[Rfam]
RNA sequence: CCCGGGCUUGCCGGGCCGCGUGAGCGGAUAAGCAAGAAGCGGAUUUGUCGGAUAGUGCCGCUUUUCAUCAAAACACCGACUGUC
Numbered sequence: 001c002c003c004g005g006g007c008u009u010g011c012c013g014g015g016c017c018g019c020g021u022g023a024g025c026g027g028a029u030a031a032g033c034a035a036g037a038a039g040c041g042g043a044u045u046u047g048u049c050g051g052a053u054a055g056u057g058c059c060g061c062u063u064u065u066c067a068u069c070a071a072a073a074c075a076c077c078g079a080c081u082g083u084c
Base pairs, nucleotide, nucleotide: 001015002014003013004012007036008035009034010033011032017026018025019024038062039061040060041059042058047080048079049078050077051076
The record is an 84-nucleotide RNA sequence, which matches "Proteo-phage-1 RNA" in Rfam.
The family's RNA type in Rfam is small RNA.
The sequence is in the family's curated seed alignment.